[Rfam]
Source information:
A member of the RNA family "MIR828 microRNA precursor family" from Senna tora, 134 nucleotides long. The organism belongs to Senna, within Eukaryota. Gene Ontology terms of the family: RISC complex and miRNA-mediated post-transcriptional gene silencing.

RNA sequence: UUAAAGUUUCUUGCUCAAAUGAGUAUUCCAAGAUCCAACCACAUGCAGUUUUGCAUACAUAGGAAAGGCAUCAGAUCCUCAAUGUGUGGUGGUUUCUAUGAGCCUGAGAUGCUCACUUGAGCAAGCAAUCUUAA
Numbered sequence: 001u002u003a004a005a006g007u008u009u010c011u012u013g014c015u016c017a018a019a020u021g022a023g024u025a026u027u028c029c030a031a032g033a034u035c036c037a038a039c040c041a042c043a044u045g046c047a048g049u050u051u052u053g054c055a056u057a058c059a060u061a062g063g064a065a066a067g068g069c070a071u072c073a074g075a076u077c078c079u080c081a082a083u084g085u086g087u088g089g090u091g092g093u094u095u096c097u098a099u100g101a102g103c104c105u106g107a108g109a110u111g112c113u114c115a116c117u118u119g120a121g122c123a124a125g126c127a128a129u130c131u132u133a134a
Stems, first nucleotide, its partner, number of pairs: 004131001006129003010125009020115008029106002